A member of the RNA family "int-alpA RNA" from Rhodoferax antarcticus, 81 nucleotides long. Acidobacteria (1 example), Planctomycetes (1 example), Proteobacteria. Rfam classes the family as a small RNA.

[Rfam]
RNA sequence: CCAGCGUCUAGCCCGAGGCUGAUCCCCAAAGGCGAAAAGUCGGACACCUUCACCGACCCCGGCGCUGGCACCUUAUGAAGG
Numbered sequence: 001c002c003a004g005c006g007u008c009u010a011g012c013c014c015g016a017g018g019c020u021g022a023u024c025c026c027c028a029a030a031g032g033c034g035a036a037a038a039g040u041c042g043g044a045c046a047c048c049u050u051c052a053c054c055g056a057c058c059c060c061g062g063c064g065c066u067g068g069c070a071c072c073u074u075a076u077g078a079a080g081g
Stems, first nucleotide, its partner, number of pairs: 001068008011033003039057005047081005